RNA sequence: UUGCACCCGGCAGGUCUCACACGGCCAGCUCCUACUGAACCCUCCCAGGGCCGGAAGGCAGCAAGAGUAGGUGGUCGUAGCGGCGCGAUGUGAGUAGCCUGCCUUCUU
Numbered sequence: 001u002u003g004c005a006c007c008c009g010g011c012a013g014g015u016c017u018c019a020c021a022c023g024g025c026c027a028g029c030u031c032c033u034a035c036u037g038a039a040c041c042c043u044c045c046c047a048g049g050g051c052c053g054g055a056a057g058g059c060a061g062c063a064a065g066a067g068u069a070g071g072u073g074g075u076c077g078u079a080g081c082g083g084c085g086c087g088a089u090g091u092g093a094g095u096a097g098c099c100u101g102c103c104u105u106c107u108u
Base pairs, nucleotide, nucleotide: 009103010102011101012100013099014098015097017093018092019091020090021089022087023086024084025083
RNA: Bacteroidales small SRP
Organism: Arachidicoccus rhizosphaerae